[Rfam]
RNA sequence: UUCCUCCUUGUCUCGGGGAGCAUAACAUCUAAUGAACGUAUAGUGAGGAUGUUGAUGCUGACACCCAGAUUGAACCAGGACAUCCUGGCGAUACCCCCGCUCGGGGUGGUUGCUUUCGAACAGUGACCAUCUGGGCGGAAUUUUUGGAACG
Numbered sequence: 001u002u003c004c005u006c007c008u009u010g011u012c013u014c015g016g017g018g019a020g021c022a023u024a025a026c027a028u029c030u031a032a033u034g035a036a037c038g039u040a041u042a043g044u045g046a047g048g049a050u051g052u053u054g055a056u057g058c059u060g061a062c063a064c065c066c067a068g069a070u071u072g073a074a075c076c077a078g079g080a081c082a083u084c085c086u087g088g089c090g091a092u093a094c095c096c097c098c099g100c101u102c103g104g105g106g107u108g109g110u111u112g113c114u115u116u117c118g119a120a121c122a123g124u125g126a127c128c129a130u131c132u133g134g135g136c137g138g139a140a141u142u143u144u145u146g147g148a149a150c151g
Stems, first nucleotide, its partner, number of pairs: 005019005020058004024053007036044002097138006107129008
Source information:
The family of this 151-nucleotide sequence from Culex tarsalis is "U4atac minor spliceosomal RNA". The sequence is in the family's curated seed alignment. U4atac is an essential component of the minor U12-type spliceosome complex which is required for removal of the rarer class of eukaryotic introns (AT-AC, U12-type). The family is grouped with related families in Rfam's "U4 clan". For this family Rfam cites "Evolutionary conservation of minor U12-type spliceosome between plants and humans" (Lorkovic et al., RNA, 2005).